[Rfam]
RNA sequence: CCUGUUCGGCUCGACGCCGCCACAGGACGGGAUGUGAUCCCUGGUUGGGAUUGAACCACGAA
Numbered sequence: 001c002c003u004g005u006u007c008g009g010c011u012c013g014a015c016g017c018c019g020c021c022a023c024a025g026g027a028c029g030g031g032a033u034g035u036g037a038u039c040c041c042u043g044g045u046u047g048g049g050a051u052u053g054a055a056c057c058a059c060g061a062a
Stems, first nucleotide, its partner, number of pairs: 001026005029057002036052005
Shown here is a 62-nucleotide RNA sequence, a member of the family "eL15-Euryarchaeota ribosomal protein leader".
A reference for the family is Eckert and Weinberg (2020), "Discovery of 20 novel ribosomal leader candidates in bacteria and archaea", BMC Microbiol.
The family's consensus secondary structure is taken from published work.
It is one of the family's seed sequences.